[Rfam]
RNA sequence: GAAUUUCCUUGGUGGUGGCUGGUGUGUGGGCCUGCUCGCCAUUGUGUGGUUAUGUCCAGAGGCAGGGGAAGGCUCUGCACCUCCUGGCAUCAUGUCUUUGGCACCGGCAGAUGUUGGUUCUAUCCUCAAACACCAGAACACUU
Numbered sequence: 001g002a003a004u005u006u007c008c009u010u011g012g013u014g015g016u017g018g019c020u021g022g023u024g025u026g027u028g029g030g031c032c033u034g035c036u037c038g039c040c041a042u043u044g045u046g047u048g049g050u051u052a053u054g055u056c057c058a059g060a061g062g063c064a065g066g067g068g069a070a071g072g073c074u075c076u077g078c079a080c081c082u083c084c085u086g087g088c089a090u091c092a093u094g095u096c097u098u099u100g101g102c103a104c105c106g107g108c109a110g111a112u113g114u115u116g117g118u119u120c121u122a123u124c125c126u127c128a129a130a131c132a133c134c135a136g137a138a139c140a141c142u143u
Stems, first nucleotide, its partner, number of pairs: 002051002013041006019034001021032002085135003090130001104117005